[Rfam]
RNA: MIR2655 microRNA precursor family
Organism: Medicago truncatula
RNA sequence: CCCAUAAGUAAUAAAAGGUUCGUUUAGGUCCCUUAACUUUAUUUAAAGUAUCGGUUUGGUCUCUUCUGUUAAUAUAAUUUAAAAAAACGUUAAAUUUUGGUCCCUUAACUUAAUUAAUUAGUAUUAGUUUGGUCCCUAAACUUAACGUUUUUUUUUAAUUAAAAUAACAUAAGGGACAAAAACAUUACUUUAAAUAAAGUUAAUGAACCUAAACAGACCUUUUAUUACUUAUGGGA
Dot-bracket structure: .(((((((..............(((.(((.(.(((((((((((.(((.............................................................................................................................................))).))))))))))).).))).)))..............)))))))..